[Rfam]
RNA sequence: ACCCUUGGUCGUAGAGUCGCGACCAACUCAAACUAAAGAACGCUCACUCGGA
Numbered sequence: 001a002c003c004c005u006u007g008g009u010c011g012u013a014g015a016g017u018c019g020c021g022a023c024c025a026a027c028u029c030a031a032a033c034u035a036a037a038g039a040a041c042g043c044u045c046a047c048u049c050g051g052a
Stems, first nucleotide, its partner, number of pairs: 006025006014045004
RNA: 6A RNA